Rfam assigns this 165-nucleotide RNA from Faecalibacterium sp. An121 to the family "glmS glucosamine-6-phosphate activated ribozyme aptamer". This entry contains a glucosamine-6-phosphate activated ribozyme that is found in the mRNA for GlmS. GlmS is an enzyme that uses fructose-6-phosphate and glutamine to generate glucosamine-6-phosphate. The organism belongs to Faecalibacterium, within Bacteria.
RNA sequence: CGUUGACGCCAAGCGCCGGGCCACACGGGUGACAGCCGUGAGGGUGACGAGGAGAAGGAUCAUCGAAAGAUUCGGCGGAUGUUCUUCCGGCUGAUGGCUCACCAGCCGAUAGAGAAGGGCAAAAAACGGCAGUAAUACCGCAACAGAUCCCUUUAAAAGGAAGCC
Numbered sequence: 001c002g003u004u005g006a007c008g009c010c011a012a013g014c015g016c017c018g019g020g021c022c023a024c025a026c027g028g029g030u031g032a033c034a035g036c037c038g039u040g041a042g043g044g045u046g047a048c049g050a051g052g053a054g055a056a057g058g059a060u061c062a063u064c065g066a067a068a069g070a071u072u073c074g075g076c077g078g079a080u081g082u083u084c085u086u087c088c089g090g091c092u093g094a095u096g097g098c099u100c101a102c103c104a105g106c107c108g109a110u111a112g113a114g115a116a117g118g119g120c121a122a123a124a125a126a127c128g129g130c131a132g133u134a135a136u137a138c139c140g141c142a143a144c145a146g147a148u149c150c151c152u153u154u155a156a157a158a159g160g161a162a163g164c165c
Stems, first nucleotide, its partner, number of pairs: 020045003024040003028036001054087005063075004088108006114154006127140003131136001